[Rfam]
The record is a 78-nucleotide RNA sequence from Cicer arietinum, which matches "Small nucleolar RNA R160" in Rfam.
snoR160 is a C/D box small nucleolar RNA, which acts as a methylation guide for 25S ribosomal RNA in plants. snoR160 has been alternatively named snoZ270 in rice.
RNA sequence: AGCAAAAUGAUGAAAUUUUAUUAUCUGAAUCUUAUGUUGAUUCCUAAUAUUAAUGGUCUUCAAAGUUCUCUGAUUGCU
Numbered sequence: 001a002g003c004a005a006a007a008u009g010a011u012g013a014a015a016u017u018u019u020a021u022u023a024u025c026u027g028a029a030u031c032u033u034a035u036g037u038u039g040a041u042u043c044c045u046a047a048u049a050u051u052a053a054u055g056g057u058c059u060u061c062a063a064a065g066u067u068c069u070c071u072g073a074u075u076g077c078u
Base pairs, nucleotide, nucleotide: 001078002077003076004075005074
Rfam classes the family as a C/D-box small nucleolar RNA.